[Rfam]
RNA sequence: GGGUGCUUGAGACUGUUUGUCUCAGGUAUUCACCGAAAGGCAGACAGAGAAAAGCCCCACCUGACUAUAAAUCAAAGUGAGGCUACCCUAUGCCUGAACACCAUAAGGUUAGCCUCUUACUCGUUGGAAAUCAACACAGGGGGCUGGGAAUG
Numbered sequence: 001g002g003g004u005g006c007u008u009g010a011g012a013c014u015g016u017u018u019g020u021c022u023c024a025g026g027u028a029u030u031c032a033c034c035g036a037a038a039g040g041c042a043g044a045c046a047g048a049g050a051a052a053a054g055c056c057c058c059a060c061c062u063g064a065c066u067a068u069a070a071a072u073c074a075a076a077g078u079g080a081g082g083c084u085a086c087c088c089u090a091u092g093c094c095u096g097a098a099c100a101c102c103a104u105a106a107g108g109u110u111a112g113c114c115u116c117u118u119a120c121u122c123g124u125u126g127g128a129a130a131u132c133a134a135c136a137c138a139g140g141g142g143g144c145u146g147g148g149a150a151u152g
Base pairs, nucleotide, nucleotide: 001058002057003056005055006054007053008052013047014046015045016044017043018042019041020040021039022038026034059078060077062075063073064072066070079116080115081114082113083112087108088107089106090104091103092102120143121142125139
The record is a 152-nucleotide RNA sequence from Shigella boydii, which matches "sok antitoxin (CssrC)" in Rfam. On this family, see Peng et al., PLoS One 2011: "An integrated approach for finding overlooked genes in Shigella". Its family is annotated with mRNA binding in the Gene Ontology. By type it is an antitoxin RNA. The family's consensus secondary structure is taken from published work. Taxonomically the source falls in Shigella boydii (Bacteria, Pseudomonadati, Enterobacterales, Enterobacteriaceae). Also identified in Shigella as CssrC.